The record is an 83-nucleotide sequence from Microcebus murinus, which matches "Small nucleolar RNA MBII-202" in Rfam.
Its family is annotated with RNA processing and nucleolus in the Gene Ontology.
On this family, see Huttenhofer et al., EMBO J 2001: "RNomics: an experimental approach that identifies 201 candidates for novel, small, non-messenger RNAs in mouse".
The family's consensus secondary structure was predicted with PFOLD.
Rfam 15.1 lists 745 matches to the family in 452 species.
RNA sequence: UGAUGACAGUCUCCGGAAUCGCUGCACUGCUUUGAUGAAAGCCCAUUUGAACCCUUUUCCAUCUGAUGACUGAGCGUUUUCGC
Numbered sequence: 001u002g003a004u005g006a007c008a009g010u011c012u013c014c015g016g017a018a019u020c021g022c023u024g025c026a027c028u029g030c031u032u033u034g035a036u037g038a039a040a041g042c043c044c045a046u047u048u049g050a051a052c053c054c055u056u057u058u059c060c061a062u063c064u065g066a067u068g069a070c071u072g073a074g075c076g077u078u079u080u081c082g083c
Stems, first nucleotide, its partner, number of pairs: 002083001004082003